[Rfam]
RNA sequence: UUACUCUGCCGUGUGACUGGCGUUUCCUCCCUGAACUUGGCCCGCUGGCCCUAUGGUCGGCGGGCUUUUUUCUGGCCAUA
Number, nucleotide and partner (000 for none) at each position: 001u000002u000003a000004c000005u000006c000007u000008g021009c020010c019011g000012u000013g000014u000015g000016a000017c000018u000019g010020g009021c008022g000023u000024u000025u000026c000027c000028u000029c000030c000031c000032u000033g000034a000035a000036c000037u000038u000039g000040g065041c064042c063043c062044g061045c060046u059047g058048g057049c000050c000051c000052u000053a000054u000055g000056g000057u048058c047059g046060g045061c044062g043063g042064g041065c040066u000067u000068u000069u000070u000071u000072c000073u000074g000075g000076c000077c000078a000079u000080a000

Shown here is an 80-nucleotide RNA sequence from Acidiphilium rubrum, a member of the family "Makes More Granules Regulator RNA (mmgR)". The match comes from Rfam's covariance-model search (41 bits). On this family, see Schluter et al., BMC Genomics 2010: "A genome-wide survey of sRNAs in the symbiotic nitrogen-fixing alpha-proteobacterium Sinorhizobium meliloti". The base pairs follow the family's consensus structure. Its family is annotated with DNA-templated transcription, termination, protein binding and response to nitrogen compound in the Gene Ontology. SuhB later renamed mmgR (makes more granules regulator) was a putative non-coding RNA found multiple times in the Agrobacterium tumefaciens genome and related alpha-proteobacteria. Other non-coding RNAs uncovered in the same analysis include: speF, ybhL, metA, and serC.Several studies inSinorhizobium meliloti showed that suhB element is indeed a non-coding RNA:firstly it was detected on Northern blot and called Sm8RNA, secondly in an RNAseq study referred to as SmelC689.The mutant phenotype's (strain lacking the small RNA) cytoplasm contains higher content of polyhydroxybutyrate (PBH)storage granules than wild type strain.